[Rfam]
RNA: ALIL pseudoknot
RNA sequence: GGCGUAUUUUGCCCAGGCGGAGCUCGACCGCCGAUCCAAGUCAUGAUCGCGUUCAUCGACGAUCACCGCGCGGUCUACGGGCUCACACCGAUCUGCUGGCAGCUGGCGAUCGCUCCG
Numbered sequence: 001g002g003c004g005u006a007u008u009u010u011g012c013c014c015a016g017g018c019g020g021a022g023c024u025c026g027a028c029c030g031c032c033g034a035u036c037c038a039a040g041u042c043a044u045g046a047u048c049g050c051g052u053u054c055a056u057c058g059a060c061g062a063u064c065a066c067c068g069c070g071c072g073g074u075c076u077a078c079g080g081g082c083u084c085a086c087a088c089c090g091a092u093c094u095g096c097u098g099g100c101a102g103c104u105g106g107c108g109a110u111c112g113c114u115c116c117g
Base pairs, nucleotide, nucleotide: 016032017031018030019029020028078117079116080115081114089112090111092109093108096105098103